[Rfam]
RNA sequence: GGCUGGUCUGAAGGUAGUGAGUUAUCUCAUUUGAUUGUUCUCAGUCAGUUACAGAUUUAACUCCUUGUUCUACUACUUUCCCCUCUCCUCAUUACUGUACUCGACUAGUCUUAA
Number, nucleotide and partner (000 for none) at each position: 001g110002g109003c108004u107005g106006g105007u104008c103009u000010g102011a101012a000013g000014g098015u097016a093017g092018u091019g090020a089021g088022u000023u000024a000025u000026c000027u000028c000029a000030u000031u000032u000033g000034a000035u000036u000037g000038u000039u000040c000041u000042c000043a000044g074045u000046c000047a071048g070049u000050u000051a000052c000053a000054g000055a000056u000057u000058u000059a000060a000061c000062u000063c000064c000065u000066u000067g000068u000069u000070c048071u047072a000073c000074u044075a000076c000077u000078u000079u000080c000081c000082c000083c000084u000085c000086u000087c000088c021089u020090c019091a018092u017093u016094a000095c000096u000097g015098u014099a000100c000101u011102c010103g008104a007105c006106u005107a004108g003109u002110c001111u000112u000113a000114a000
Y RNA: a 114-nucleotide RNA sequence from Microcebus murinus. The literature on the family includes a 2000 paper in Nucleic Acids Res by Teunissen et al., "Conserved features of Y RNAs: a comparison of experimentally derived secondary structures". It is annotated as a non-coding RNA gene. Rfam 15.1 lists 26,986 matches to the family in 650 species. From the family's description: Y RNAs are components of the Ro ribonucleoprotein particle (Ro RNP), in association with Ro60 and La proteins.